[Rfam]
RNA sequence: UUUUCCGUGUUCAUCUUGUUAGUGCAAGGAAUUAAACGGAAUGACCAGUUUUGUCUGUCCGAUCAUCCACGCAGCAAUGGCGUAAGACGUAUUGAUCUUUCAGACAGUUAGCGGGCUGCGGGUUGCAGUCCUUACCGGUAGAUACUUUACUGGAUUUCACCCAACAGAAUGACGGCAAGCCGGGCGUCCCCGGAAGCUUACCUAAGUCAAAGCAACUGGGGUAAGCAGGCGAAGCCACGCGUCUGUUGAGCGAAUGACGAUGAGUAUAAAUGGAAUCUUCUCUGGAGAGUUAUCCCAGGCUGUUCCCCUGAUAAUUGCGCUGUGUUUCCGUUUGAAAUACAGGCUACCGACACUCUGCGCCUCUUAAGCGAGCGACAACCGUGAGGUUGGCGACGUGAACAGUCACGAGGCCAUCGGUUUACCCCGGAAAGGUAUCACUCUGCUCGCAGCUUAGUCGUCAA
Numbered sequence: 001u002u003u004u005c006c007g008u009g010u011u012c013a014u015c016u017u018g019u020u021a022g023u024g025c026a027a028g029g030a031a032u033u034a035a036a037c038g039g040a041a042u043g044a045c046c047a048g049u050u051u052u053g054u055c056u057g058u059c060c061g062a063u064c065a066u067c068c069a070c071g072c073a074g075c076a077a078u079g080g081c082g083u084a085a086g087a088c089g090u091a092u093u094g095a096u097c098u099u100u101c102a103g104a105c106a107g108u109u110a111g112c113g114g115g116c117u118g119c120g121g122g123u124u125g126c127a128g129u130c131c132u133u134a135c136c137g138g139u140a141g142a143u144a145c146u147u148u149a150c151u152g153g154a155u156u157u158c159a160c161c162c163a164a165c166a167g168a169a170u171g172a173c174g175g176c177a178a179g180c181c182g183g184g185c186g187u188c189c190c191c192g193g194a195a196g197c198u199u200a201c202c203u204a205a206g207u208c209a210a211a212g213c214a215a216c217u218g219g220g221g222u223a224a225g226c227a228g229g230c231g232a233a234g235c236c237a238c239g240c241g242u243c244u245g246u247u248g249a250g251c252g253a254a255u256g257a258c259g260a261u262g263a264g265u266a267u268a269a270a271u272g273g274a275a276u277c278u279u280c281u282c283u284g285g286a287g288a289g290u291u292a293u294c295c296c297a298g299g300c301u302g303u304u305c306c307c308c309u310g311a312u313a314a315u316u317g318c319g320c321u322g323u324g325u326u327u328c329c330g331u332u333u334g335a336a337a338u339a340c341a342g343g344c345u346a347c348c349g350a351c352a353c354u355c356u357g358c359g360c361c362u363c364u365u366a367a368g369c370g371a372g373c374g375a376c377a378a379c380c381g382u383g384a385g386g387u388u389g390g391c392g393a394c395g396u397g398a399a400c401a402g403u404c405a406c407g408a409g410g411c412c413a414u415c416g417g418u419u420u421a422c423c424c425c426g427g428a429a430a431g432g433u434a435u436c437a438c439u440c441u442g443c444u445c446g447c448a449g450c451u452u453a454g455u456c457g458u459c460a461a
Stems, first nucleotide, its partner, number of pairs: 003041006014029005051107007062096004069090003074081002113452011132430002135427004144303001150298004317344002320342004325337004346418005359411005373392002376389005
Source information:
Rfam assigns this 461-nucleotide RNA from Enterobacteriaceae bacterium strain FGI 57 to the family "RNase E 5' UTR element". Rfam describes the family as follows. This family represents a conserved element found in the 5' UTR of RNase E mRNA. RNase E is a key regulatory enzyme in the pathway of mRNA degradation in E. coli that is able to auto-regulate the degradation of its own mRNA in response to changes in RNase E activity. Its family is annotated with regulation of gene expression in the Gene Ontology. It is annotated as a cis-regulatory element.